[Rfam]
Nucleotides: 181
Stems, first nucleotide, its partner, number of pairs: 003178008012168004017164003033149003037146006059127003063123002068118001075115005085105002090101004
Number, partner (000 for none) and nucleotide at each position: 001000a002000a003178u004177c005176c006175c007174c008173u009172g010171c011000a012168g013167u014166g015165u016000u017164c018163g019162u020000c021000g022000a023000a024000g025000u026000c027000g028000u029000a030000g031000a032000u033149u034148c035147c036000u037146u038145g039144a040143a041142c042141c043000a044000a045000u046000a047000g048000u049000c050000g051000a052000g053000a054000g055000a056000c057000u058000u059127g060126g061125u062000u063123g064122c065000u066000g067000a068118c069000c070000u071000g072000a073000a074000g075115g076114c077113c078112g079111c080000g081000g082000u083000g084000u085105g086104c087000a088000u089000g090101c091100c092099c093098c094000g095000u096000u097000a098093g099092g100091g101090g102000a103000a104086g105085c106000c107000u108000g109000a110000a111079g112078c113077g114076g115075u116000g117000g118068g119000a120000g121000u122064g123063c124000g125061a126060c127059c128000a129000c130000c131000c132000u133000g134000a135000a136000c137000c138000c139000u140000a141042g142041g143040u144039u145038c146037a147035g148034g149033a150000u151000g152000c153000c154000c155000g156000g157000c158000g159000g160000a161000g162019a163018c164017g165015g166014c167013a168012c169000a170000g171010g172009c173008g174007g175006g176005g177004g178003g179000c180000c181000a
Rfam assigns this 181-nucleotide sequence from a Rhodocyclaceae bacterium to the family "6S / SsrS RNA". It scores 80 bits against the family's covariance model. The base pairs follow the family's consensus structure, which is taken from published work. Rfam classes the family as a non-coding RNA gene.